[Rfam]
The family of this 189-nucleotide sequence from Priestia veravalensis is "Lysine riboswitch aptamer".
RNA sequence: CGAUGAGGUAGAGGAUGCAAAAAGUAUGAGUAUACUAUGUGAGGAUGACAACUGUGAUCAUAGUAAAAAGGAUUUUUUGCCGAAGGAAAGAAAAAGAGUCAGCUUUUCUUUUCUGGGGUUACCUUGAAAAAGGGUAACACUGUCAUUAUGAAAAUACGCUUGUUUUCAUGAUGGAGGGCUACUGAUCGU
Numbered sequence: 001c002g003a004u005g006a007g008g009u010a011g012a013g014g015a016u017g018c019a020a021a022a023a024g025u026a027u028g029a030g031u032a033u034a035c036u037a038u039g040u041g042a043g044g045a046u047g048a049c050a051a052c053u054g055u056g057a058u059c060a061u062a063g064u065a066a067a068a069a070g071g072a073u074u075u076u077u078u079g080c081c082g083a084a085g086g087a088a089a090g091a092a093a094a095a096g097a098g099u100c101a102g103c104u105u106u107u108c109u110u111u112u113c114u115g116g117g118g119u120u121a122c123c124u125u126g127a128a129a130a131a132g133g134g135u136a137a138c139a140c141u142g143u144c145a146u147u148a149u150g151a152a153a154a155u156a157c158g159c160u161u162g163u164u165u166u167c168a169u170g171a172u173g174g175a176g177g178g179c180u181a182c183u184g185a186u187c188g189u
Stems, first nucleotide, its partner, number of pairs: 007183005017080009033065007084114011115141002118138008143174012
Dot-bracket structure: ......(((((.....(((((((((.......(((((((...................)))))))......)))))))))...(((((((((((.........)))))))))))((.((((((((.....)))))))).)).((((((((((((........))))))))))))....)))))......
Rfam describes the family as follows. Riboswitches are metabolite binding domains within certain messenger RNAs that serve as precision sensors for their corresponding targets.